The family of this 87-nucleotide RNA from Aythya fuligula is "Small nucleolar RNA SNORD60".

[Rfam]
RNA sequence: AGCCGGGGAUGAUCCGACCUUUUCUGACACCUCGUCUGAGGGCGGCGGGUGGCCGCGGCCCCUGCUGAUGCAUCGCGGCUGAGGCUC
Number, nucleotide and partner (000 for none) at each position: 001a086002g085003c084004c083005g000006g000007g000008g000009a000010u000011g000012a000013u000014c000015c000016g000017a000018c000019c000020u000021u000022u000023u000024c000025u000026g000027a000028c000029a000030c000031c000032u000033c000034g000035u000036c000037u000038g000039a000040g000041g000042g056043c055044g054045g053046c052047g000048g000049g000050u000051g000052g046053c045054c044055g043056c042057g000058g000059c000060c000061c000062c000063u000064g000065c000066u000067g000068a000069u000070g000071c000072a000073u000074c000075g000076c000077g000078g000079c000080u000081g000082a000083g004084g003085c002086u001087c000

NCBI's taxonomy places the organism under Eukaryota, Archelosauria, Saurischia, Neognathae, Aythya. It scores 42 bits against the family's covariance model. For this family Rfam cites "Purified box C/D snoRNPs are able to reproduce site-specific 2'-O-methylation of target RNA in vitro" (Galardi et al., Mol Cell Biol, 2002). The family is grouped with related families in Rfam's "SNORD60 clan". The family has 22 seed sequences and 825 matches in Rfam 15.1.